[Rfam]
RNA sequence: CCAUGCAGCCGGGGUGUUAGCGGUGCCCUGUACCUGCAAUCCGCUACAGCAGGGGUGUUGGUCUGCCUCGGGAGUUGUUUCUGAUGCUGGCCGUAGUAAGUGGCGUUGACGUAUGGGUCUUGCGCAAUGGAAACCUAUGAACCGUGUCAGGUCGGGAACGAAGCAGCACUAAGUAGGAUCUUUCAUGUGCCGCAAGGGUGCCUGAACUGAGUUAACUGCUUCGGUAACUGAUCAGGAGUGAUUCACAAAGCAGAUCGCAUGG
Numbered sequence: 001c002c003a004u005g006c007a008g009c010c011g012g013g014g015u016g017u018u019a020g021c022g023g024u025g026c027c028c029u030g031u032a033c034c035u036g037c038a039a040u041c042c043g044c045u046a047c048a049g050c051a052g053g054g055g056u057g058u059u060g061g062u063c064u065g066c067c068u069c070g071g072g073a074g075u076u077g078u079u080u081c082u083g084a085u086g087c088u089g090g091c092c093g094u095a096g097u098a099a100g101u102g103g104c105g106u107u108g109a110c111g112u113a114u115g116g117g118u119c120u121u122g123c124g125c126a127a128u129g130g131a132a133a134c135c136u137a138u139g140a141a142c143c144g145u146g147u148c149a150g151g152u153c154g155g156g157a158a159c160g161a162a163g164c165a166g167c168a169c170u171a172a173g174u175a176g177g178a179u180c181u182u183u184c185a186u187g188u189g190c191c192g193c194a195a196g197g198g199u200g201c202c203u204g205a206a207c208u209g210a211g212u213u214a215a216c217u218g219c220u221u222c223g224g225u226a227a228c229u230g231a232u233c234a235g236g237a238g239u240g241a242u243u244c245a246c247a248a249a250g251c252a253g254a255u256c257g258c259a260u261g262g
Base pairs, nucleotide, nucleotide: 001262002261003260004259005258006257008056009055010054011029012028013027014026015025016024017023018022033053034052035051036050037049062254063253064252065251066250068248070246072244073243074242076240077239078238079237080236081235082234083233084232085231090225092223093222095220096219097218100216101215102213103212104211111207112206114204115203116202117201118200119196120195121194122193123192124191125187126186128185129184130183131182132181134177135176136175137174138173144169145168146167147166152161153160154159